[Rfam]
RNA: c-di-GMP-I riboswitch aptamer
Organism: Methylophaga muralis
Nucleotides: 084
Stems, first nucleotide, its partner, number of pairs: 012037002017032006040078004045074003048069003
Number, partner (000 for none) and nucleotide at each position: 001000u002000c003000a004000a005000u006000g007000a008000c009000u010000u011000g012037c013036c014000a015000a016000a017032c018031u019030u020029a021028u022027c023000g024000u025000g026000a027022g028021g029020u030019a031018a032017g033000g034000g035000c036013g037012g038000a039000a040078a041077g042076c043075c044000a045074c046073g047072g048069a049068u050067c051000u052000u053000u054000g055000g056000g057000u058000u059000a060000c061000u062000u063000u064000a065000a066000a067050g068049a069048u070000g071000g072047c073046c074045g075043g076042g077041u078040u079000g080000c081000a082000u083000u084000g